[Rfam]
RNA sequence: CGAGUAAAUCGCCUUAUCGCUCUUGUGCUGAAUUUAUUUCAGCACUUGGGAGGAAAGUCCGAACACCAUAGUGUAACACAGUGGUUAACAGCCACCAGCCGAAAGGUUAGGAAAAGUGCAACAGAAAGUAUGUACGGGUAAUGCCGUAGUGAAACCGGGUAAACUCUGUGUGGUGCAAUGCCAUGUAUACCAGCGCUUGAAGGCGGCACGUUUGAUUGCUGGAGGGUAGGCAGCUAAAGUGUUUUGGUAACAAAACAUUGAGAUAAAUGAUAAGGGUUGCGCCUUGGCGUAAUACAGAAUUCGGCUUAUAGAUUUACGUUGUUAU
Numbered sequence: 001c002g003a004g005u006a007a008a009u010c011g012c013c014u015u016a017u018c019g020c021u022c023u024u025g026u027g028c029u030g031a032a033u034u035u036a037u038u039u040c041a042g043c044a045c046u047u048g049g050g051a052g053g054a055a056a057g058u059c060c061g062a063a064c065a066c067c068a069u070a071g072u073g074u075a076a077c078a079c080a081g082u083g084g085u086u087a088a089c090a091g092c093c094a095c096c097a098g099c100c101g102a103a104a105g106g107u108u109a110g111g112a113a114a115a116g117u118g119c120a121a122c123a124g125a126a127a128g129u130a131u132g133u134a135c136g137g138g139u140a141a142u143g144c145c146g147u148a149g150u151g152a153a154a155c156c157g158g159g160u161a162a163a164c165u166c167u168g169u170g171u172g173g174u175g176c177a178a179u180g181c182c183a184u185g186u187a188u189a190c191c192a193g194c195g196c197u198u199g200a201a202g203g204c205g206g207c208a209c210g211u212u213u214g215a216u217u218g219c220u221g222g223a224g225g226g227u228a229g230g231c232a233g234c235u236a237a238a239g240u241g242u243u244u245u246g247g248u249a250a251c252a253a254a255a256c257a258u259u260g261a262g263a264u265a266a267a268u269g270a271u272a273a274g275g276g277u278u279g280c281g282c283c284u285u286g287g288c289g290u291a292a293u294a295c296a297g298a299a300u301u302c303g304g305c306u307u308a309u310a311g312a313u314u315u316a317c318g319u320u321g322u323u324a325u
Stems, first nucleotide, its partner, number of pairs: 001321003004317007011309001012275007020050003025045007055307003059304005064175004071209004076171005081095005096110001097108004111166002116164002118160002179232004190222005201213004239258008

The family of this 325-nucleotide sequence from Hyunsoonleella pacifica is "Bacterial RNase P class A". Lineage of the source: Bacteria > Pseudomonadati > Flavobacteriales > Flavobacteriaceae > Hyunsoonleella. By type it is a ribozyme.